The family of this 376-nucleotide RNA sequence from Stappia albiluteola is "Alphaproteobacteria transfer-messenger RNA". Its family is annotated with RNA catabolic process in the Gene Ontology. NCBI's taxonomy places the organism under Bacteria, Pseudomonadota, Alphaproteobacteria, Stappiaceae, Stappia. The match comes from Rfam's covariance-model search (298 bits).
RNA sequence: CCCCUUUUCUUGAGCCCGGCCGGCAACUAUAUUCGGUGUGUCGGCGCAAGCCGACUAUGGCGAUAAACGGUCAGUGCAAUAAGCCUAUCGGACCCGGGGGCGGUACCCGGCGCCUCCACCCAAAUCCGUGGCGAACCGAACGCAUUCGGGAAGUCGCGGAUUUCGGCGGGGGCGAAAUAGGAUCGACGAGGGUGUAAAGACUGUGCUUUCGCUCGGCAUGGUUCCGCCGAUAUCGGGCCAUCUUUAUAGUUGCCAACGACAACUAUGCUAUGGACAACGCUGUCGCCGCGUAAUGCGGUGCCGGUAGUCCUUUAAGUCCUGUCGGGUAGCACCGGCAGGCGGGGUUCGGAGGCACCUGGCAACAGAAGCCUCCACU
Numbered sequence: 001c002c003c004c005u006u007u008u009c010u011u012g013a014g015c016c017c018g019g020c021c022g023g024c025a026a027c028u029a030u031a032u033u034c035g036g037u038g039u040g041u042c043g044g045c046g047c048a049a050g051c052c053g054a055c056u057a058u059g060g061c062g063a064u065a066a067a068c069g070g071u072c073a074g075u076g077c078a079a080u081a082a083g084c085c086u087a088u089c090g091g092a093c094c095c096g097g098g099g100g101c102g103g104u105a106c107c108c109g110g111c112g113c114c115u116c117c118a119c120c121c122a123a124a125u126c127c128g129u130g131g132c133g134a135a136c137c138g139a140a141c142g143c144a145u146u147c148g149g150g151a152a153g154u155c156g157c158g159g160a161u162u163u164c165g166g167c168g169g170g171g172g173c174g175a176a177a178u179a180g181g182a183u184c185g186a187c188g189a190g191g192g193u194g195u196a197a198a199g200a201c202u203g204u205g206c207u208u209u210c211g212c213u214c215g216g217c218a219u220g221g222u223u224c225c226g227c228c229g230a231u232a233u234c235g236g237g238c239c240a241u242c243u244u245u246a247u248a249g250u251u252g253c254c255a256a257c258g259a260c261a262a263c264u265a266u267g268c269u270a271u272g273g274a275c276a277a278c279g280c281u282g283u284c285g286c287c288g289c290g291u292a293a294u295g296c297g298g299u300g301c302c303g304g305u306a307g308u309c310c311u312u313u314a315a316g317u318c319c320u321g322u323c324g325g326g327u328a329g330c331a332c333c334g335g336c337a338g339g340c341g342g343g344g345u346u347c348g349g350a351g352g353c354a355c356c357u358g359g360c361a362a363c364a365g366a367a368g369c370c371u372c373c374a375c376u
Stems, first nucleotide, its partner, number of pairs: 040055005059213005069206001072203004084192003088189003094110005111174007214229004219240003223237003342357004348373006